[Rfam]
RNA sequence: GAAAUUUGAGGACGGAACUGGCAGCCGUCGCCCAUGCUAGGAGAUGUGGGAAUGUCACCCCACCAAAUUUC
Numbered sequence: 001g002a003a004a005u006u007u008g009a010g011g012a013c014g015g016a017a018c019u020g021g022c023a024g025c026c027g028u029c030g031c032c033c034a035u036g037c038u039a040g041g042a043g044a045u046g047u048g049g050g051a052a053u054g055u056c057a058c059c060c061c062a063c064c065a066a067a068u069u070u071c
Stems, first nucleotide, its partner, number of pairs: 001071008011029005019057005031041001046063005